[Rfam]
Source information
The family of this 166-nucleotide sequence from Kocuria coralli is "FMN riboswitch aptamer (RFN element)". The organism belongs to Kocuria, within Bacteria.

RNA sequence: GACGUGCUCCGAGAUCGGUGAAAUUCCGAGCCGGCGGUGACAGCCCGCUAACCGAGCGCAGCGUCCGGCCUCCCUCAGCAUUCGCGGGAGAGCCGGCCGCAGGCGUUUCGGCCUGACCGGUGAGAUUCCGGUGCCGACAGAACAGUCUGGAUGGGAGGAGCACUAG
Numbered sequence: 001g002a003c004g005u006g007c008u009c010c011g012a013g014a015u016c017g018g019u020g021a022a023a024u025u026c027c028g029a030g031c032c033g034g035c036g037g038u039g040a041c042a043g044c045c046c047g048c049u050a051a052c053c054g055a056g057c058g059c060a061g062c063g064u065c066c067g068g069c070c071u072c073c074c075u076c077a078g079c080a081u082u083c084g085c086g087g088g089a090g091a092g093c094c095g096g097c098c099g100c101a102g103g104c105g106u107u108u109c110g111g112c113c114u115g116a117c118c119g120g121u122g123a124g125a126u127u128c129c130g131g132u133g134c135c136g137a138c139a140g141a142a143c144a145g146u147c148u149g150g151a152u153g154g155g156a157g158g159a160g161c162a163c164u165a166g
Stems, first nucleotide, its partner, number of pairs: 004163007016028003030146002032136002034048004043134002052111005116132005138149003